[Rfam]
RNA sequence: CAGCACUUGAUACGAACCGAGCUCUCUAUAUCCUAGCCUUGUGCUGAAGGCUUGCCAUGUGUGGUGAGAGCGGGGUUGAAGCAGUGCAAUAUUAAAACAAAAGCCAUGAGUCUUUAAGCCCAGUGUGUAAAGACUCACCGUGAGUUAUAACUCAGUGGCACAACU
Numbered sequence: 001c002a003g004c005a006c007u008u009g010a011u012a013c014g015a016a017c018c019g020a021g022c023u024c025u026c027u028a029u030a031u032c033c034u035a036g037c038c039u040u041g042u043g044c045u046g047a048a049g050g051c052u053u054g055c056c057a058u059g060u061g062u063g064g065u066g067a068g069a070g071c072g073g074g075g076u077u078g079a080a081g082c083a084g085u086g087c088a089a090u091a092u093u094a095a096a097a098c099a100a101a102a103g104c105c106a107u108g109a110g111u112c113u114u115u116a117a118g119c120c121c122a123g124u125g126u127g128u129a130a131a132g133a134c135u136c137a138c139c140g141u142g143a144g145u146u147a148u149a150a151c152u153c154a155g156u157g158g159c160a161c162a163a164c165u
Stems, first nucleotide, its partner, number of pairs: 003087005015077004021071006027061005033054001035052006103159003123138003127134002141154005
Small Cajal body specific RNA 1: a 165-nucleotide sequence from Molossus molossus.
On this family, see Darzacq et al., EMBO J 2002: "Cajal body-specific small nuclear RNAs: a novel class of 2'-O-methylation and pseudouridylation guide RNAs".
A search with the family's covariance model found it, with a score of 156 bits.
From the family's description: scaRNAs are a specific class of small nuclear RNAs which localise to the Cajal bodies and guide the modification of RNA polymerase II transcribed spliceosomal RNAs U1, U2, U4, U5 and U12. ACA35 belong to the H/ACA box class of guide RNAs as it has the predicted hairpin-hinge-hairpin-tail structure, conserved H/ACA-box motifs and is found associated with GAR1. It is predicted to guide pseudouridylation of the U2 spliceosomal snRNA at residue U89.
NCBI's taxonomy places the organism under Eukaryota, Eumetazoa, Tetrapoda, Mammalia, Molossus.